[Rfam]
RNA sequence: ACACAGGUGCGCAACUGGCGAUAGGCGCGCGGCAGCCACCUGCCGUCCGUGCUGACGUGGCCCCCCGCUCCCCGCGAGCGGGACAACCACUGGGAAGCGCACCGCCCGCUCUACGGGUGUUCAGCCGUUCGCCUGGGCAGUCCCU
Dot-bracket structure: .....(((((((..(([[[[[........................................................(.((.....)).)..))..)))))))..................(.(((..]]]]]..))).).....
RNA: ZMP/ZTP riboswitch aptamer (pfl RNA motif)
Organism: Hydrogenophaga sp. H7